[Rfam]
The family of this 217-nucleotide RNA from Paenarthrobacter sp. YJN-5 is "c-di-AMP riboswitch aptamer (ydaO/yuaA leader)". From the family's description: This family represents a conserved RNA structure found upstream of the ydaO and yuaA genes in Bacillus subtilis and related genes in other bacteria. The ydaO/yuaA element is thought to act as a genetic 'off' switch for the ydaO and yuaA genes in its native state.

RNA sequence: AGAUCAGGGGUGUUAAACAUCUACUGGCAGAGGCGGGGGAACCACAAUCGGCUGCCUAGAGAAGCAGCCUUGGGGUGAAGUCCGCAGCAGCAGUGCCUUACUUACGCAAUUCCCUCCUGGGAUACCUGUGUGCCGUGAGCGCUGCGUGCGGGCCGGGUCUUUGCACUCUCUGAUCCGAAUCCGACAGCUAACUUCGCAGGCUUUUGAGAGAGGAACA
Numbered sequence: 001a002g003a004u005c006a007g008g009g010g011u012g013u014u015a016a017a018c019a020u021c022u023a024c025u026g027g028c029a030g031a032g033g034c035g036g037g038g039g040a041a042c043c044a045c046a047a048u049c050g051g052c053u054g055c056c057u058a059g060a061g062a063a064g065c066a067g068c069c070u071u072g073g074g075g076u077g078a079a080g081u082c083c084g085c086a087g088c089a090g091c092a093g094u095g096c097c098u099u100a101c102u103u104a105c106g107c108a109a110u111u112c113c114c115u116c117c118u119g120g121g122a123u124a125c126c127u128g129u130g131u132g133c134c135g136u137g138a139g140c141g142c143u144g145c146g147u148g149c150g151g152g153c154c155g156g157g158u159c160u161u162u163g164c165a166c167u168c169u170c171u172g173a174u175c176c177g178a179a180u181c182c183g184a185c186a187g188c189u190a191a192c193u194u195c196g197c198a199g200g201c202u203u204u205u206g207a208g209a210g211a212g213g214a215a216c217a
Stems, first nucleotide, its partner, number of pairs: 004031002033197006043072002073182003081152006155176004